[Rfam]
RNA sequence: UGACAUGCGGCGGGAGAGCCCCGUCAGAGCCACUGGCGGGCGCCGUAGGAGCAAUUUCCUCCCCGGGAAUCUCUCAGGCCCCCGUACCGCCGCGAAGAG
Numbered sequence: 001u002g003a004c005a006u007g008c009g010g011c012g013g014g015a016g017a018g019c020c021c022c023g024u025c026a027g028a029g030c031c032a033c034u035g036g037c038g039g040g041c042g043c044c045g046u047a048g049g050a051g052c053a054a055u056u057u058c059c060u061c062c063c064c065g066g067g068a069a070u071c072u073c074u075c076a077g078g079c080c081c082c083c084g085u086a087c088c089g090c091c092g093c094g095a096a097g098a099g
Base pairs, nucleotide, nucleotide: 006094007093008092009091010090011089012088013087020040021039022038023037024036025035026034042079043078044077045075049073050072051071055066056065
Dot-bracket structure: .....((((((((......(((((((.......))))))).((((...(((...((........))....))).).))).......)))))))).....